This 39-nucleotide RNA sequence from Mesorhizobium sp. L-8-10 belongs to the Rfam family "THF-II riboswitch (folE RNA)".
Pairs were carried over by alignment from the consensus structure, which is taken from published work.
Rfam classes the family as a cis-regulatory element.

RNA sequence: CCGUUAAACUCGUUCCUCCGCAGAGUGGAACUACGGGAG
Numbered sequence: 001c002c003g004u005u006a007a008a009c010u011c012g013u014u015c016c017u018c019c020g021c022a023g024a025g026u027g028g029a030a031c032u033a034c035g036g037g038a039g
Base pairs, nucleotide, nucleotide: 001036002035003034004033012031013030014029015028016027018025
Dot-bracket structure: ((((.......(((((.(......).))))).))))...